[Rfam]
RNA: azaaromatic riboswitch aptamer (yjdF RNA)
Organism: Desulfitobacterium hafniense
RNA sequence: UAAAAAUAACAUAAAAACACGGUCCGGUUGGUAGUCCGGAUGCGUUGAAUUGACCGGUGUCGUAUCCUUCCCCCUCGGGAUGUUCGUUGUUAGCUUUAGCAUAUA
Numbered sequence: 001u002a003a004a005a006a007u008a009a010c011a012u013a014a015a016a017a018c019a020c021g022g023u024c025c026g027g028u029u030g031g032u033a034g035u036c037c038g039g040a041u042g043c044g045u046u047g048a049a050u051u052g053a054c055c056g057g058u059g060u061c062g063u064a065u066c067c068u069u070c071c072c073c074c075u076c077g078g079g080a081u082g083u084u085c086g087u088u089g090u091u092a093g094c095u096u097u098a099g100c101a102u103a104u105a
Base pairs, nucleotide, nucleotide: 004097005096006095007092008091009090010089011088022041023040024039025038026037027036042060043059044058045057046056047055069080070079071078072077